Rfam assigns this 61-nucleotide sequence from Oryctolagus cuniculus to the family "Selenocysteine insertion sequence 1". The source organism's lineage runs through Eukaryota, Teleostomi, Theria, Euarchontoglires and Oryctolagus. By type it is a cis-regulatory element.
RNA sequence: GUUUCAUCCAUGAGGGCGUUCCCCCGAAAACAAAUGGAGGAACGCCUGAUGUCCGGGAAAC
Numbered sequence: 001g002u003u004u005c006a007u008c009c010a011u012g013a014g015g016g017c018g019u020u021c022c023c024c025c026g027a028a029a030a031c032a033a034a035u036g037g038a039g040g041a042a043c044g045c046c047u048g049a050u051g052u053c054c055g056g057g058a059a060a061c
Stems, first nucleotide, its partner, number of pairs: 001061005015046008024037003